A member of the RNA family "Small nucleolar RNA R11/Z151" from Dioscorea zingiberensis, 94 nucleotides long. Gene Ontology terms of the family: RNA processing and nucleolus. Rfam classes the family as a C/D-box small nucleolar RNA.
[Rfam]
Nucleotides: 094
Base pairs, nucleotide, nucleotide: 001094002093003092005090
Number, partner (000 for none) and nucleotide at each position: 001094a002093g003092g004000c005090u006000g007000a008000u009000g010000a011000u012000g013000a014000u015000u016000g017000a018000u019000c020000u021000u022000c023000g024000a025000g026000a027000u028000c029000u030000u031000a032000g033000c034000g035000g036000a037000u038000u039000u040000c041000a042000g043000a044000g045000a046000g047000a048000c049000c050000u051000c052000g053000c054000g055000u056000c057000g058000a059000u060000g061000a062000u063000c064000u065000g066000a067000a068000u069000c070000u071000a072000u073000g074000u075000u076000g077000u078000u079000a080000c081000a082000c083000a084000c085000a086000c087000u088000g089000a090005a091000a092003c093002c094001u
Description: A search with the family's covariance model found it, with a score of 64 bits. The organism belongs to Dioscorea, within Eukaryota. The base pairs follow the family's consensus structure, which was predicted with PFOLD.